[Rfam]
RNA sequence: AAGGAAUAGACAAUGAUGUCAGAAUUCCAAGCACAUGUCUGAGCUUCUGCUGAAACUUCUCAUCACUGAGUCUUUCCUG
Numbered sequence: 001a002a003g004g005a006a007u008a009g010a011c012a013a014u015g016a017u018g019u020c021a022g023a024a025u026u027c028c029a030a031g032c033a034c035a036u037g038u039c040u041g042a043g044c045u046u047c048u049g050c051u052g053a054a055a056c057u058u059c060u061c062a063u064c065a066c067u068g069a070g071u072c073u074u075u076c077c078u079g
Base pairs, nucleotide, nucleotide: 002078003077004076005075008073009072010071011070